[Rfam]
RNA: Xanthomonas sRNA sX9
RNA sequence: AUGUGCCACCCGCACAUUUCGUUUCCUUCGCGCCGUCCGCACCCACCCGACGACUGCUCGCUACAUAGUGUUAGCA
Numbered sequence: 001a002u003g004u005g006c007c008a009c010c011c012g013c014a015c016a017u018u019u020c021g022u023u024u025c026c027u028u029c030g031c032g033c034c035g036u037c038c039g040c041a042c043c044c045a046c047c048c049g050a051c052g053a054c055u056g057c058u059c060g061c062u063a064c065a066u067a068g069u070g071u072u073a074g075c076a
Base pairs, nucleotide, nucleotide: 002016003015004014005013006012020035021034023032025030047074049072050071051070052069